[Rfam]
Nucleotides: 097
Stems, first nucleotide, its partner, number of pairs: 003095002037054002040051001
Number, partner (000 for none) and nucleotide at each position: 001000a002000u003095g004094c005000a006000g007000u008000g009000a010000u011000g012000a013000g014000c015000c016000g017000a018000c019000a020000g021000u022000g023000a024000c025000u026000g027000a028000a029000c030000u031000g032000g033000u034000a035000u036000u037054g038053u039000c040051u041000c042000c043000u044000u045000a046000c047000u048000a049000a050000u051040g052000a053038g054037c055000u056000c057000u058000g059000a060000c061000c062000a063000g064000g065000a066000a067000a068000u069000g070000a071000u072000g073000u074000c075000a076000c077000a078000g079000u080000a081000a082000u083000c084000u085000u086000c087000u088000c089000u090000c091000u092000g093000a094004g095003c096000a097000g
Z30 small nucleolar RNA: a 97-nucleotide sequence from Gouania willdenowi. Taxonomically the source falls in Gouania (Eukaryota, Craniata, Neoteleostei, Gobiesocoidei). A reference for the family is Galardi et al. (2002), "Purified box C/D snoRNPs are able to reproduce site-specific 2'-O-methylation of target RNA in vitro", Mol Cell Biol. The match comes from Rfam's covariance-model search (62 bits). Rfam classes the family as a C/D-box small nucleolar RNA.